Background
The record is a 121-nucleotide RNA sequence from Domibacillus iocasae, which matches "PyrR binding site" in Rfam. The match comes from Rfam's covariance-model search (61 bits). Rfam 15.1 lists 1,498 matches to the family in 930 species. The literature on the family includes a 2001 paper in Nucleic Acids Res by Bonner et al., "Molecular recognition of pyr mRNA by the Bacillus subtilis attenuation regulatory protein PyrR". The family's consensus secondary structure is taken from published work.

RNA sequence: AGAACCUUUAAGAACAGUCCCGUGAGGCUGGGAAGGGAUCGGACAUAAUACGGUACACGUGUAUCGUUUUAAGGGAUCAGUAUGCCUUCUCACCAGUAUCGGGUGAGGAGGCUUUUUUCAU
Numbered sequence: 001a002g003a004a005c006c007u008u009u010a011a012g013a014a015c016a017g018u019c020c021c022g023u024g025a026g027g028c029u030g031g032g033a034a035g036g037g038a039u040c041g042g043a044c045a046u047a048a049u050a051c052g053g054u055a056c057a058c059g060u061g062u063a064u065c066g067u068u069u070u071a072a073g074g075g076a077u078c079a080g081u082a083u084g085c086c087u088u089c090u091c092a093c094c095a096g097u098a099u100c101g102g103g104u105g106a107g108g109a110g111g112c113u114u115u116u117u118u119c120a121u
Stems, first nucleotide, its partner, number of pairs: 005036005015030005044073001046071003050067007080116001082114001084112010